[Rfam]
Shown here is a 558-nucleotide part of an RNA from Mucilaginibacter gracilis, a member of the family "Bacterial small subunit ribosomal RNA".
NCBI's taxonomy places the organism under Bacteria, Pseudomonadati, Bacteroidota, Sphingobacteriales, Mucilaginibacter.
For this family Rfam cites "The comparative RNA web (CRW) site: an online database of comparative sequence and structure information for ribosomal, intron, and other RNAs" (Cannone et al., BMC Bioinformatics, 2002).

RNA sequence: ACAAUGGAGAGUUUGAUCCUGGCUCAGGAUGAACGCUAGCGGCAGGCCUAAUACAUGCAAGUCGGACGGGAUUUGGGAGCUUGCUCCUGAUGAGAGUGGCGCACGGGUGCGUAACACGUAUGUAACCUACCUUAUCCAGGGGGAUAGCCUCUCGAAAGAGAGAUUAAGACCGCAUAACAUUACGACUCAGCAUUGAGAUGUAAUCAAAUAUUUAUAGGGAUAAGAUGGGCAUGCGGGACAUUAGCUAGUUGGCGGGGUAACGGCCCACCAAGGCGACGAUGUCUAGGGGAUCUGAGAGGAUGACCCCCCACACUGGUACUGAGACACGGACCAGACUCCUACGGGAGGCAGCAGUAAGGAAUAUUGGUCAAUGGGCGGAAGCCUGAACCAGCCAUGCCGCGUGCAGGAAGACGGCCCUACGGGUUGUAAACUGCUUUUGCAGGGGAAUAAACCUUCGUAUGUAUACGAAGCUGAAUGUACUCUGAGAAUAAGGAUCGGCUAACUCCGUGCCAGCAGCCGCGGUAAUACGGAGGAUCCAAGCGUUAUCCGGAUUUAUUG
Numbered sequence: 001a002c003a004a005u006g007g008a009g010a011g012u013u014u015g016a017u018c019c020u021g022g023c024u025c026a027g028g029a030u031g032a033a034c035g036c037u038a039g040c041g042g043c044a045g046g047c048c049u050a051a052u053a054c055a056u057g058c059a060a061g062u063c064g065g066a067c068g069g070g071a072u073u074u075g076g077g078a079g080c081u082u083g084c085u086c087c088u089g090a091u092g093a094g095a096g097u098g099g100c101g102c103a104c105g106g107g108u109g110c111g112u113a114a115c116a117c118g119u120a121u122g123u124a125a126c127c128u129a130c131c132u133u134a135u136c137c138a139g140g141g142g143g144a145u146a147g148c149c150u151c152u153c154g155a156a157a158g159a160g161a162g163a164u165u166a167a168g169a170c171c172g173c174a175u176a177a178c179a180u181u182a183c184g185a186c187u188c189a190g191c192a193u194u195g196a197g198a199u200g201u202a203a204u205c206a207a208a209u210a211u212u213u214a215u216a217g218g219g220a221u222a223a224g225a226u227g228g229g230c231a232u233g234c235g236g237g238a239c240a241u242u243a244g245c246u247a248g249u250u251g252g253c254g255g256g257g258u259a260a261c262g263g264c265c266c267a268c269c270a271a272g273g274c275g276a277c278g279a280u281g282u283c284u285a286g287g288g289g290a291u292c293u294g295a296g297a298g299g300a301u302g303a304c305c306c307c308c309c310a311c312a313c314u315g316g317u318a319c320u321g322a323g324a325c326a327c328g329g330a331c332c333a334g335a336c337u338c339c340u341a342c343g344g345g346a347g348g349c350a351g352c353a354g355u356a357a358g359g360a361a362u363a364u365u366g367g368u369c370a371a372u373g374g375g376c377g378g379a380a381g382c383c384u385g386a387a388c389c390a391g392c393c394a395u396g397c398c399g400c401g402u403g404c405a406g407g408a409a410g411a412c413g414g415c416c417c418u419a420c421g422g423g424u425u426g427u428a429a430a431c432u433g434c435u436u437u438u439g440c441a442g443g444g445g446a447a448u449a450a451a452c453c454u455u456c457g458u459a460u461g462u463a464u465a466c467g468a469a470g471c472u473g474a475a476u477g478u479a480c481u482c483u484g485a486g487a488a489u490a491a492g493g494a495u496c497g498g499c500u501a502a503c504u505c506c507g508u509g510c511c512a513g514c515a516g517c518c519g520c521g522g523u524a525a526u527a528c529g530g531a532g533g534a535u536c537c538a539a540g541c542g543u544u545a546u547c548c549g550g551a552u553u554u555a556u557u558g
Stems, first nucleotide, its partner, number of pairs: 009025005027548004032544006039400006045393002047358001052356003056353003061100003066097002073090007107311003117235007126228002131224007139173001141171002147164001149162005179204006187196003209216002237283003244274003249271004254266003286308004290301004313334005336347004364390001366389003372385005403434004413425004440484005448475001454469003492537005503532005513520002